Rfam assigns this 121-nucleotide RNA sequence from Gemmiger sp. An120 to the family "FMN riboswitch aptamer (RFN element)". The match comes from Rfam's covariance-model search (117 bits). A reference for the family is Vitreschak et al. (2002), "Regulation of riboflavin biosynthesis and transport genes in bacteria by transcriptional and translational attenuation", Nucleic Acids Res. Lineage of the source: Bacteria > Bacillati > Eubacteriales > Oscillospiraceae > Gemmiger. Pairs were carried over by alignment from the consensus structure, which is taken from published work. The RFN element is a highly conserved domain that is found frequently in the 5'-untranslated regions of prokaryotic mRNAs that encode for flavin mononucleotide (FMN) biosynthesis and transport proteins.

RNA sequence: AGUCUGUUUCAGGGCGGGGUGCAAUUCCCCACCGGCGGUACAGCCCGCGAACAUCCUGUAUGGAUGCCGAUCUGGUGAGAUUCCAGAGCCGACGGUAUAGUCCGGAUGAAAGAAACGGCAG
Numbered sequence: 001a002g003u004c005u006g007u008u009u010c011a012g013g014g015c016g017g018g019g020u021g022c023a024a025u026u027c028c029c030c031a032c033c034g035g036c037g038g039u040a041c042a043g044c045c046c047g048c049g050a051a052c053a054u055c056c057u058g059u060a061u062g063g064a065u066g067c068c069g070a071u072c073u074g075g076u077g078a079g080a081u082u083c084c085a086g087a088g089c090c091g092a093c094g095g096u097a098u099a100g101u102c103c104g105g106a107u108g109a110a111a112g113a114a115a116c117g118g119c120a121g
Stems, first nucleotide, its partner, number of pairs: 004118007017029003031101002033091002035048004043089002052066002071087005093104003